[Rfam]
RNA sequence: AAAAGAAGCAAUAACCCCCCUCUUGUUUUAUCAAGAGGGUACCAUUGCUUCUUUUUUA
Numbered sequence: 001a002a003a004a005g006a007a008g009c010a011a012u013a014a015c016c017c018c019c020c021u022c023u024u025g026u027u028u029u030a031u032c033a034a035g036a037g038g039g040u041a042c043c044a045u046u047g048c049u050u051c052u053u054u055u056u057u058a
Stems, first nucleotide, its partner, number of pairs: 002054011020037006